[Rfam]
A member of the RNA family "skipping-rope RNA", 72 nucleotides long.

RNA sequence: AAUCUUUGAGGACGGAACAGGCAGCCGUCGCCCAGAGUUAGGAGAUGCAGGAUUGCCACCCUGCCAACGAUU
Number, nucleotide and partner (000 for none) at each position: 001a072002a071003u070004c069005u000006u067007u066008g065009a000010g000011g029012a028013c027014g026015g025016a000017a000018c000019a000020g057021g056022c055023a054024g000025c015026c014027g013028u012029c011030g000031c042032c000033c000034a000035g000036a000037g000038u000039u000040a000041g000042g031043a000044g000045a000046u000047g064048c063049a062050g061051g060052a000053u000054u023055g022056c021057c020058a000059c000060c051061c050062u049063g048064c047065c008066a007067a006068c000069g004070a003071u002072u001